[Rfam]
RNA sequence: GGAUCAUGAGGCGAUGUGAGUGGGUCUAUGCUUAUUGCUGGACUCAGGAAAGUCCCCGGGCCACGACUGCAGAGAUGCAGACUCGGAAACGGGUUAACUUCGAGCUGGGACUAGUCUCGCUCCUUUGGGGCGAGGGGCUGAGACGCGUGUGGAGCCUUCGCUAGUCCCGCCGAAGAUAUUGGCCAAUAUCACAGUCAUUCACAUGGUUUCUCGACUAACAGAACGGGGCUUAUGCCCUCGUGAUC
Numbered sequence: 001g002g003a004u005c006a007u008g009a010g011g012c013g014a015u016g017u018g019a020g021u022g023g024g025u026c027u028a029u030g031c032u033u034a035u036u037g038c039u040g041g042a043c044u045c046a047g048g049a050a051a052g053u054c055c056c057c058g059g060g061c062c063a064c065g066a067c068u069g070c071a072g073a074g075a076u077g078c079a080g081a082c083u084c085g086g087a088a089a090c091g092g093g094u095u096a097a098c099u100u101c102g103a104g105c106u107g108g109g110a111c112u113a114g115u116c117u118c119g120c121u122c123c124u125u126u127g128g129g130g131c132g133a134g135g136g137g138c139u140g141a142g143a144c145g146c147g148u149g150u151g152g153a154g155c156c157u158u159c160g161c162u163a164g165u166c167c168c169g170c171c172g173a174a175g176a177u178a179u180u181g182g183c184c185a186a187u188a189u190c191a192c193a194g195u196c197a198u199u200c201a202c203a204u205g206g207u208u209u210c211u212c213g214a215c216u217a218a219c220a221g222a223a224c225g226g227g228g229c230u231u232a233u234g235c236c237c238u239c240g241u242g243a244u245c
Stems, first nucleotide, its partner, number of pairs: 002245010014204006021046007050231003054228004068079004080095006127171001131169002134166001135157004145150001206215003
The record is a 245-nucleotide sequence from Glycine soja, which matches "RNase MRP" in Rfam. Rfam's curators write: RNase MRP is an enzymatically active ribonucleoprotein with two distinct roles in eukaryotes. The literature on the family includes a 2006 paper in Nucleic Acids Res by Rosenblad et al., "Inventory and analysis of the protein subunits of the ribonucleases P and MRP provides further evidence of homology between the yeast and human enzymes".